[Rfam]
RNA sequence: CUUGAAGGAGCCCAGCCACAGCGGCUGGUCGGGACGCCGGUGCUGCCCGUAGGUGGCCAGCAGCGCCUGGGCCUC
Numbered sequence: 001c002u003u004g005a006a007g008g009a010g011c012c013c014a015g016c017c018a019c020a021g022c023g024g025c026u027g028g029u030c031g032g033g034a035c036g037c038c039g040g041u042g043c044u045g046c047c048c049g050u051a052g053g054u055g056g057c058c059a060g061c062a063g064c065g066c067c068u069g070g071g072c073c074u075c
Stems, first nucleotide, its partner, number of pairs: 014026004038065002043060003047056003
RNA: ASpks TB sRNA